[Rfam]
RNA: Small nucleolar RNA SNORA1
Organism: Fukomys damarensis
Nucleotides: 130
Stems, first nucleotide, its partner, number of pairs: 002060003006056003021043007073123004087112006
Number, partner (000 for none) and nucleotide at each position: 001000a002060g003059c004058c005000u006056c007055a008054u009000u010000c011000u012000a013000g014000a015000u016000g017000a018000g019000g020000a021043u022042a023041g024040g025039c026038a027037c028000u029000g030000u031000u032000g033000a034000u035000u036000g037027g038026u039025g040024u041023c042022u043021a044000a045000a046000a047000u048000u049000g050000g051000u052000c053000a054008g055007u056006g057000u058004g059003g060002c061000u062000a063000a064000a065000a066000u067000u068000g069000a070000g071000a072000c073123a074122c075121a076120g077000u078000u079000c080000a081000u082000g083000c084000u085000u086000c087112c088111a089110u090109c091108a092107c093000a094000g095000u096000a097000a098000a099000c100000g101000a102000u103000u104000a105000c106000a107092g108091u109090g110089g111088u112087g113000a114000u115000g116000a117000g118000a119000c120076c121075u122074g123073u124000a125000a126000c127000a128000u129000u130000u